[Rfam]
RNA: Bacterial RNase P class A
RNA sequence: CGAGUCGGUCGGACGGCCGCGUCGGCCCCGGUCCGCCGGGACCGCCGAGGAACGUCCGGGCUCCGAAGGGCAAGGUGGUGGGUAACGCCCACCCGGGGUGACCCGCGGGACAGUGCCACAGAGAACAGACCGCCUCCGGUUCCGACCGGCGGUAAGGGUGAAACGGUGGUGCAAGAGACCACCAGCGUGCCGGGUGACCGGUGCGGCUCGGUAAACCCCACCUGGAGCAAGGUCAGACAGACUGUGUUGGAGGGCGGCCCGCCCGAUUCUCUCCGGAGAAGCGCAGUCGGGUAGACCGCUGGAGGCGUGCGGCAACGUACGUCGUAGAUGGAUGGCCGUCGCCCGCGCGGGGGCAACCGCGCGCGGGAACAGAACCCGGCGUACAGACCGACUCGUCCG
Numbered sequence: 001c002g003a004g005u006c007g008g009u010c011g012g013a014c015g016g017c018c019g020c021g022u023c024g025g026c027c028c029c030g031g032u033c034c035g036c037c038g039g040g041a042c043c044g045c046c047g048a049g050g051a052a053c054g055u056c057c058g059g060g061c062u063c064c065g066a067a068g069g070g071c072a073a074g075g076u077g078g079u080g081g082g083u084a085a086c087g088c089c090c091a092c093c094c095g096g097g098g099u100g101a102c103c104c105g106c107g108g109g110a111c112a113g114u115g116c117c118a119c120a121g122a123g124a125a126c127a128g129a130c131c132g133c134c135u136c137c138g139g140u141u142c143c144g145a146c147c148g149g150c151g152g153u154a155a156g157g158g159u160g161a162a163a164c165g166g167u168g169g170u171g172c173a174a175g176a177g178a179c180c181a182c183c184a185g186c187g188u189g190c191c192g193g194g195u196g197a198c199c200g201g202u203g204c205g206g207c208u209c210g211g212u213a214a215a216c217c218c219c220a221c222c223u224g225g226a227g228c229a230a231g232g233u234c235a236g237a238c239a240g241a242c243u244g245u246g247u248u249g250g251a252g253g254g255c256g257g258c259c260c261g262c263c264c265g266a267u268u269c270u271c272u273c274c275g276g277a278g279a280a281g282c283g284c285a286g287u288c289g290g291g292u293a294g295a296c297c298g299c300u301g302g303a304g305g306c307g308u309g310c311g312g313c314a315a316c317g318u319a320c321g322u323c324g325u326a327g328a329u330g331g332a333u334g335g336c337c338g339u340c341g342c343c344c345g346c347g348c349g350g351g352g353g354c355a356a357c358c359g360c361g362c363g364c365g366g367g368a369a370c371a372g373a374a375c376c377c378g379g380c381g382u383a384c385a386g387a388c389c390g391a392c393u394c395g396u397c398c399g
Base pairs, nucleotide, nucleotide: 001395002394003393004392005391006390007389008388009387010386011384012340013339014338015337016336017335018334020047021046023044024043025042027040028039029038030037052382053381054380056379057378058377059376060375061227062226063225064224069274070273073223074222075221076220077219078092079091080090081089082088093107094105095104096103097102108218109217113216114215115212116211117210130157131156132153133152134151136149137148138147139146140145165183166182167181168180169179170178185207186205187204188203189202190201191200192199193198231297232296233295234294240288241287242286243285244284245283267280268279269278270277271276304323305322306321307320308319309318310317311316